Description: Rfam assigns this 82-nucleotide RNA sequence from Catellatospora methionotrophica to the family "Glycine riboswitch aptamer". For this family Rfam cites "A glycine-dependent riboswitch that uses cooperative binding to control gene expression" (Mandal et al., Science, 2004). Lineage of the source: Bacteria > Bacillati > Actinomycetes > Micromonosporaceae > Catellatospora. It scores 46 bits against the family's covariance model.
RNA sequence: CUCUGGAAAGUCAGGACGGGAACGUCCUGCGCCCAAGGUGCAAGCCGCCGCCGCGGUGAAGCUCUCAGGCCCCAUGACAGAG
Numbered sequence: 001c002u003c004u005g006g007a008a009a010g011u012c013a014g015g016a017c018g019g020g021a022a023c024g025u026c027c028u029g030c031g032c033c034c035a036a037g038g039u040g041c042a043a044g045c046c047g048c049c050g051c052c053g054c055g056g057u058g059a060a061g062c063u064c065u066c067a068g069g070c071c072c073c074a075u076g077a078c079a080g081a082g
Stems, first nucleotide, its partner, number of pairs: 001082005012029004031070003035065001038064001040062001044057004